[Rfam]
RNA sequence: GCUCUGCUUUCCCAGGUGCUGGAUCAGUGGUUUGAGUCUGAGCCUCUAAAAGCCACUCUAGCAACGGACGCAGUGAUUGGAGCUAUGAC
Numbered sequence: 001g002c003u004c005u006g007c008u009u010u011c012c013c014a015g016g017u018g019c020u021g022g023a024u025c026a027g028u029g030g031u032u033u034g035a036g037u038c039u040g041a042g043c044c045u046c047u048a049a050a051a052g053c054c055a056c057u058c059u060a061g062c063a064a065c066g067g068a069c070g071c072a073g074u075g076a077u078u079g080g081a082g083c084u085a086u087g088a089c
Stems, first nucleotide, its partner, number of pairs: 001089001003087001005085002010081003014078002017075005024068002027065002030062003034058004040054001042053002
RNA: mir-1287 microRNA precursor family